[Rfam]
RNA sequence: UGCCGCCAGCAGCAGCACUGAAGUAAGGGUAGCAGUACCAUCCCAUGCCACCCUUACUUCUGUGCUGCUGCUGGCAGCA
Numbered sequence: 001u002g003c004c005g006c007c008a009g010c011a012g013c014a015g016c017a018c019u020g021a022a023g024u025a026a027g028g029g030u031a032g033c034a035g036u037a038c039c040a041u042c043c044c045a046u047g048c049c050a051c052c053c054u055u056a057c058u059u060c061u062g063u064g065c066u067g068c069u070g071c072u073g074g075c076a077g078c079a
Stems, first nucleotide, its partner, number of pairs: 001079003005075003011069008020059001022058008
Dot-bracket structure: (((.(((...((((((((.(.((((((((.....................)))))))))..))))))))...))).)))
mir-16 microRNA precursor family: a 79-nucleotide RNA sequence from Terrapene triunguis. A reference for the family is Calin et al. (2002), "Frequent deletions and down-regulation of micro- RNA genes miR15 and miR16 at 13q14 in chronic lymphocytic leukemia", Proc Natl Acad Sci U S A. Lineage of the source: Eukaryota > Teleostomi > Dipnotetrapodomorpha > Testudinata > Terrapene. Its family is annotated with RISC complex and miRNA-mediated post-transcriptional gene silencing in the Gene Ontology. The family's consensus secondary structure was predicted with PFOLD.